The family of this 218-nucleotide RNA sequence from Thielaviopsis punctulata is "Group I catalytic intron". The family's consensus secondary structure is taken from published work. About the family: Group I catalytic introns are large self-splicing ribozymes. They catalyse their own excision from mRNA, tRNA and rRNA precursors in a wide range of organisms. The core secondary structure consists of 9 paired regions (P1-P9). These fold to essentially two domains - the P4-P6 domain (formed from the stacking of P5, P4, P6 and P6a helices) and the P3-P9 domain (formed from the P8, P3, P7 and P9 helices). A search with the family's covariance model found it, with a score of 68 bits. Gene Ontology term of the family: Group I intron splicing.
[Rfam]
RNA sequence: CAAACACCUGCAGCUAUUGUACCUGAAUGAUAGAGUGAAAUAUAAAUGUCAUUCGAAAAUCUCGAGAAUUGCUGGAAAAUUUUUAUAACUAAAGACUAUCAGCAGGAAAGCAAUUUGUUGUUUUUCACUAAAAUUGAAUCUUCAGAGACUAUGCACGAGACAGUUAUAUAUUUUUUAUAUAAUUGAAGAUAUAGUCCGAACAUAGUAGAAAUACUAUG
Numbered sequence: 001c002a003a004a005c006a007c008c009u010g011c012a013g014c015u016a017u018u019g020u021a022c023c024u025g026a027a028u029g030a031u032a033g034a035g036u037g038a039a040a041u042a043u044a045a046a047u048g049u050c051a052u053u054c055g056a057a058a059a060u061c062u063c064g065a066g067a068a069u070u071g072c073u074g075g076a077a078a079a080u081u082u083u084u085a086u087a088a089c090u091a092a093a094g095a096c097u098a099u100c101a102g103c104a105g106g107a108a109a110g111c112a113a114u115u116u117g118u119u120g121u122u123u124u125u126c127a128c129u130a131a132a133a134u135u136g137a138a139u140c141u142u143c144a145g146a147g148a149c150u151a152u153g154c155a156c157g158a159g160a161c162a163g164u165u166a167u168a169u170a171u172u173u174u175u176u177a178u179a180u181a182a183u184u185g186a187a188g189a190u191a192u193a194g195u196c197c198g199a200a201c202a203u204a205g206u207a208g209a210a211a212u213a214c215u216a217u218g
Base pairs, nucleotide, nucleotide: 030041031040060160061159062158063157066154070104071103072102073101074100075099080095081094082093083092084091105141106140113135118131119130120129122127145197147196148195149194150193151192163183164182165181166180167179168178169177170176203216204215205214206213207212